[Rfam]
RNA sequence: AGAAGAUUGAGAAGAGCUGCUCUUAGUACGAGAGGACCGGAGUGGAGAUACCUCUAGUGUUCCAGUUGUCACGCCAGUGGCACAGCUGGGUAGCUACGUAUCGAACAGAUAAACGCUGAAAGCAUCUAAGCGUGAAGCUGACUUCAAGAUUAAUCUUCUAUUAGAAUCGUUGAAGACUACGACGUUGAUAGGUUAGAAGUGUAAGCAUGGUGACAUGUUCAGCUGACUAAUACUAAUAAUUCGAAA
Numbered sequence: 001a002g003a004a005g006a007u008u009g010a011g012a013a014g015a016g017c018u019g020c021u022c023u024u025a026g027u028a029c030g031a032g033a034g035g036a037c038c039g040g041a042g043u044g045g046a047g048a049u050a051c052c053u054c055u056a057g058u059g060u061u062c063c064a065g066u067u068g069u070c071a072c073g074c075c076a077g078u079g080g081c082a083c084a085g086c087u088g089g090g091u092a093g094c095u096a097c098g099u100a101u102c103g104a105a106c107a108g109a110u111a112a113a114c115g116c117u118g119a120a121a122g123c124a125u126c127u128a129a130g131c132g133u134g135a136a137g138c139u140g141a142c143u144u145c146a147a148g149a150u151u152a153a154u155c156u157u158c159u160a161u162u163a164g165a166a167u168c169g170u171u172g173a174a175g176a177c178u179a180c181g182a183c184g185u186u187g188a189u190a191g192g193u194u195a196g197a198a199g200u201g202u203a204a205g206c207a208u209g210g211u212g213a214c215a216u217g218u219u220c221a222g223c224u225g226a227c228u229a230a231u232a233c234u235a236a237u238a239a240u241u242c243g244a245a246a
Stems, first nucleotide, its partner, number of pairs: 001159008011145004017045007047102005055096003062089005067082006106140003113133005164242004168184005189235003192231005198224002205218005

The record is a 246-nucleotide part of an RNA from Malacoplasma iowae, which matches "Bacterial large subunit ribosomal RNA" in Rfam. The base pairs follow the family's consensus structure, which is taken from published work. It scores 2754 bits against the family's covariance model. The organism belongs to Malacoplasma iowae, within Bacteria.